[Rfam]
RNA sequence: AAAAAGGGCGCUCGUCUUUGGCAUGUUCCAAUGUCAGGAACAAUAGUGCAGACGCAUUGCGCCGUUGGCUCAUCCAUUCGCCCCUCGUUGGGCGGGGGCGUGCGCUAAAUUGCCGCCUUCGAUGGGUUUCUAGCGUGCUCAGUGGGGUAUGGCUUUGCAUAUCCAGUGCAUAAUUUUUUUUGUUAGGGGUUUGCGGCUGCACAUUUUAUGGCAUUGUUUUGUGUCCGUGCGCUGUGCCCCA
Numbered sequence: 001a002a003a004a005a006g007g008g009c010g011c012u013c014g015u016c017u018u019u020g021g022c023a024u025g026u027u028c029c030a031a032u033g034u035c036a037g038g039a040a041c042a043a044u045a046g047u048g049c050a051g052a053c054g055c056a057u058u059g060c061g062c063c064g065u066u067g068g069c070u071c072a073u074c075c076a077u078u079c080g081c082c083c084c085u086c087g088u089u090g091g092g093c094g095g096g097g098g099c100g101u102g103c104g105c106u107a108a109a110u111u112g113c114c115g116c117c118u119u120c121g122a123u124g125g126g127u128u129u130c131u132a133g134c135g136u137g138c139u140c141a142g143u144g145g146g147g148u149a150u151g152g153c154u155u156u157g158c159a160u161a162u163c164c165a166g167u168g169c170a171u172a173a174u175u176u177u178u179u180u181u182g183u184u185a186g187g188g189g190u191u192u193g194c195g196g197c198u199g200c201a202c203a204u205u206u207u208a209u210g211g212c213a214u215u216g217u218u219u220u221g222u223g224u225c226c227g228u229g230c231g232c233u234g235u236g237c238c239c240c241a
Stems, first nucleotide, its partner, number of pairs: 008169005013054005055144005061138002063135006145164007187239004193235005199230004

Record summary
This 241-nucleotide sequence from Drosophila albomicans belongs to the Rfam family "U11 spliceosomal RNA". Gene Ontology terms of the family: mRNA 5'-splice site recognition, U11 snRNP and pre-mRNA 5'-splice site binding. Lineage of the source: Eukaryota > Panarthropoda > Acalyptratae > Ephydroidea > Drosophila. The family's RNA type in Rfam is spliceosomal small nuclear RNA.